[Rfam]
RNA sequence: AGUUCUGACUCGGGGUGCCUGUACCGUUAGUAUUGGCUGAGAUUUUACCCGUAUUACCUGAUCUGGAUUAUGCCAGCGUAGGGAAGUCUUGGUAUCUCAAC
Dot-bracket structure: ......((((((((..(((.((((.....)))).)))..........)))).....((((..((((......))))..))))..)))).............
This 101-nucleotide RNA from Serratia sp. DD3 belongs to the Rfam family "TPP riboswitch aptamer (THI element)". Rfam describes the family as follows. Vitamin B(1) in its active form thiamin pyrophosphate (TPP) is an essential coenzyme that is synthesised by coupling of pyrimidine and thiazole moieties in bacteria.